The record is a 75-nucleotide RNA sequence from Ziziphus jujuba, which matches "Plastid-ycf2 5UTR RNA" in Rfam. It is annotated as a cis-regulatory element. The organism belongs to Ziziphus jujuba, within Eukaryota. About the family: Plastid ycf2 is a non-coding RNA (ncRNA) recognised in plastids. It was found in the prime untranslated region (5UTR) of ycf2 genes, it presents a tRNA-like motif which suggests it can be involved in mRNA maturation, particularly involved in defining the precise 5' end of the transcript. On this family, see Richter et al., Plant Commun 2023: "Retrograde signaling in plants: A critical review focusing on the GUN pathway and beyond".

RNA sequence: AAGCAUCUAAUAGGAGUUGAACCUACAAAUUCGUCAAUUAUGAGUUGGGCGUUUUAAUCAUUCAGUCAUGGAUGC
Numbered sequence: 001a002a003g004c005a006u007c008u009a010a011u012a013g014g015a016g017u018u019g020a021a022c023c024u025a026c027a028a029a030u031u032c033g034u035c036a037a038u039u040a041u042g043a044g045u046u047g048g049g050c051g052u053u054u055u056a057a058u059c060a061u062u063c064a065g066u067c068a069u070g071g072a073u074g075c
Stems, first nucleotide, its partner, number of pairs: 003075006011025004040069003044066006051059001